Rfam assigns this 77-nucleotide sequence from Gasterosteus aculeatus to the family "Small nucleolar RNA SNORD101". A search with the family's covariance model found it, with a score of 53 bits. Rfam classes the family as a C/D-box small nucleolar RNA.

RNA sequence: GCUUGAAUGAUGACUUAAUUUCUUUUGUCGGAUACCCCUUCACUCUCCAAUGAGUGAGCUCCUUUCUCUGACGACGC
Numbered sequence: 001g002c003u004u005g006a007a008u009g010a011u012g013a014c015u016u017a018a019u020u021u022c023u024u025u026u027g028u029c030g031g032a033u034a035c036c037c038c039u040u041c042a043c044u045c046u047c048c049a050a051u052g053a054g055u056g057a058g059c060u061c062c063u064u065u066c067u068c069u070g071a072c073g074a075c076g077c
Stems, first nucleotide, its partner, number of pairs: 001077002003074003